sodF sRNA: an 89-nucleotide RNA from Streptomyces sp. TS71-3. By type it is a small RNA. A search with the family's covariance model found it, with a score of 75 bits. Gene Ontology terms of the family: mRNA binding, regulation of mRNA stability and negative regulation of translation.
RNA sequence: UCGUCCGCCUCGUGAUCGUCUUCUCACCUUUCACGUGCGGACGGAAUGAGGGAGGGCUCCCGCGAGGACAGGACUCGCGGGAGCCGUCC
Number, nucleotide and partner (000 for none) at each position: 001u044002c043003g042004u041005c040006c039007g038008c037009c000010u035011c000012g034013u033014g032015a031016u000017c000018g028019u000020c000021u000022u000023c000024u000025c000026a000027c000028c018029u000030u000031u015032c014033a013034c012035g010036u000037g008038c007039g006040g005041a004042c003043g002044g001045a000046a000047u000048g000049a000050g000051g089052g088053a087054g000055g085056g084057c083058u082059c081060c080061c079062g078063c077064g076065a075066g074067g000068a000069c000070a000071g000072g000073a000074c066075u065076c064077g063078c062079g061080g060081g059082a058083g057084c056085c055086g000087u053088c052089c051